[Rfam]
RNA sequence: AUGAAGGCUAUGAUAGAGAUAAGUAUGUUAAUCAUCUAUACAGGGAUGGAAUGCCUUAGAUUGAAAGCAUUCCUAUAGUUACUGAUAACGGAAAUUCACUCUUGAGCUUGUACUUGAACUUUGACGUUACGUCAAUCAGUAGAGAUACACGAUGACCCGUCGUUACAGGGACUAAGAGAUAUGUCGCUUUCUUUACUAGCGAUUUGUCUGAAUUAGGGUGGUACCACGGUUCUUCCGUCCCUGUA
Numbered sequence: 001a002u003g004a005a006g007g008c009u010a011u012g013a014u015a016g017a018g019a020u021a022a023g024u025a026u027g028u029u030a031a032u033c034a035u036c037u038a039u040a041c042a043g044g045g046a047u048g049g050a051a052u053g054c055c056u057u058a059g060a061u062u063g064a065a066a067g068c069a070u071u072c073c074u075a076u077a078g079u080u081a082c083u084g085a086u087a088a089c090g091g092a093a094a095u096u097c098a099c100u101c102u103u104g105a106g107c108u109u110g111u112a113c114u115u116g117a118a119c120u121u122u123g124a125c126g127u128u129a130c131g132u133c134a135a136u137c138a139g140u141a142g143a144g145a146u147a148c149a150c151g152a153u154g155a156c157c158c159g160u161c162g163u164u165a166c167a168g169g170g171a172c173u174a175a176g177a178g179a180u181a182u183g184u185c186g187c188u189u190u191c192u193u194u195a196c197u198a199g200c201g202a203u204u205u206g207u208c209u210g211a212a213u214u215a216g217g218g219u220g221g222u223a224c225c226a227c228g229g230u231u232c233u234u235c236c237g238u239c240c241c242u243g244u245a
Stems, first nucleotide, its partner, number of pairs: 007107002015102004026090005036078003049072006110148002113144003150162003179207003183203006215242004226238004

Source information:
Shown here is a 245-nucleotide RNA from Pristimantibacillus lignocellulolyticus, a member of the family "T-box leader". Lineage of the source: Bacteria > Bacillati > Bacillota > Paenibacillaceae > Pristimantibacillus (SeqCode). Uncharged tRNA acts as the effector for transcription antitermination of genes in the T-box leader family. It scores 98 bits against the family's covariance model.